The family of this 74-nucleotide RNA is "freshwater-2 RNA". Rfam's curators put it in the seed alignment. The family's RNA type in Rfam is cis-regulatory element. The family's consensus secondary structure is taken from published work.
RNA sequence: UAUCAGCAAAGUCUGAUUUACGCGGUAUACCAACCGCGUAGUGGGCUAGAACCCGCAUAAGGAGAAACAAAAUG
Numbered sequence: 001u002a003u004c005a006g007c008a009a010a011g012u013c014u015g016a017u018u019u020a021c022g023c024g025g026u027a028u029a030c031c032a033a034c035c036g037c038g039u040a041g042u043g044g045g046c047u048a049g050a051a052c053c054c055g056c057a058u059a060a061g062g063a064g065a066a067a068c069a070a071a072a073u074g
Stems, first nucleotide, its partner, number of pairs: 002017005019040007041056004